[Rfam]
RNA: Listeria sRNA rli38
Organism: Lacticaseibacillus camelliae
RNA sequence: UUCGACUGGGAAUAAAAGGUACAUGUAAAUUGAACCCGGAAUGUUGAUUUAACGGCGUUUUCGGGAGAUGCAAAGGAUAUGAUUGGCGGGGGAGUUGUGACGUUCCCCGCCAAAAUCCCCGCCAAGUUUGGGCCGAUUGAGGGCUGAGUUGGCGGGGAUUUUUUU
Dot-bracket structure: .......(((((....................................(.(.((..((.((..(......)..)).)).)).).)((((.....))))....)))))......((((((((((((.......................)))))))))))).....